[Rfam]
RNA sequence: CAAUCGGCCCUUUUCAGGGCCACCAAAUGUUUCUUAACGUAUGGAU
Numbered sequence: 001c002a003a004u005c006g007g008c009c010c011u012u013u014u015c016a017g018g019g020c021c022a023c024c025a026a027a028u029g030u031u032u033c034u035u036a037a038c039g040u041a042u043g044g045a046u
Stems, first nucleotide, its partner, number of pairs: 006021006

A member of the RNA family "Histone 3' UTR stem-loop" from Trichomalopsis sarcophagae, 46 nucleotides long. Rfam 15.1 lists 44,596 matches to the family in 976 species. It is annotated as a cis-regulatory element. Rfam describes the family as follows. The mRNAs of metazoan histone genes lack a poly-A tail. 3' end processing occurs at a site between a highly conserved stem-loop (modelled by this family) and a purine rich region around 20 nts downstream (the histone downstream element, or HDE). The stem-loop is bound by a 31 kDa stem-loop binding protein (SLBP - also termed the histone hairpin binding protein, or HBP). Together with U7 snRNA binding of the HDE, SLBP binding nucleate s the formation of the processing complex.